[Rfam]
The family of this 35-nucleotide RNA is "DUF805b RNA". Its Rfam clan is "DUF805 clan". It is one of the family's seed sequences.
RNA sequence: AAAGAGGUAUCCGAAAAUCUUUAACAGAGUAGGAA
Number, nucleotide and partner (000 for none) at each position: 001a000002a021003a020004g019005a018006g000007g000008u000009a000010u034011c033012c032013g000014a000015a000016a000017a000018u005019c004020u003021u002022u000023a000024a000025c000026a000027g000028a000029g000030u000031a000032g012033g011034a010035a000